[Rfam]
RNA sequence: CAGGUGUCCCGUUAGGUGAGGCUCCUGCGCGCGUAUGUGUCUGCUGCCCGGAAAGGUCGAGAGACCCCUACGGGUUGAACAGGCCCUGCCGAAUCAAGGCUUGGCUUAACGCAGACCGGGGAGACCCGUGCUCCCCUAGGCCCGCAGUGCUGAAGCUCGACGUAGGGAAGCCCG
Number, nucleotide and partner (000 for none) at each position: 001c000002a000003g000004g000005u170006g000007u168008c167009c166010c165011g161012u160013u097014a000015g157016g156017u155018g000019a000020g151021g150022c149023u000024c000025c147026u146027g145028c144029g143030c000031g141032c140033g000034u000035a000036u000037g000038u000039g116040u000041c114042u113043g112044c111045u000046g075047c074048c073049c072050g071051g000052a000053a000054a000055g066056g065057u064058c063059g000060a000061g000062a000063g058064a057065c056066c055067c000068c000069u000070a000071c050072g049073g048074g047075u046076u000077g000078a000079a000080c000081a000082g106083g105084c104085c103086c000087u000088g100089c099090c098091g000092a000093a000094u000095c000096a000097a013098g090099g089100c088101u000102u000103g085104g084105c083106u082107u000108a000109a000110c000111g044112c043113a042114g041115a000116c039117c000118g135119g134120g133121g000122a000123g000124a000125c000126c000127c000128g000129u000130g000131c000132u000133c120134c119135c118136c000137u000138a000139g000140g032141c031142c000143c029144g028145c027146a026147g025148u000149g022150c021151u020152g000153a000154a000155g017156c016157u015158c000159g000160a012161c011162g000163u000164a000165g010166g009167g008168a007169a000170g005171c000172c000173c000174g000
RNA: M-box riboswitch aptamer (ykoK leader)
Organism: Streptomyces alkaliphilus